[Rfam]
RNA sequence: CCCGGCGCUUUGCGCUGGGCUGAUAUAUAACGCUCUUUCAGAGCU
Numbered sequence: 001c002c003c004g005g006c007g008c009u010u011u012g013c014g015c016u017g018g019g020c021u022g023a024u025a026u027a028u029a030a031c032g033c034u035c036u037u038u039c040a041g042a043g044c045u
Stems, first nucleotide, its partner, number of pairs: 001019008032044005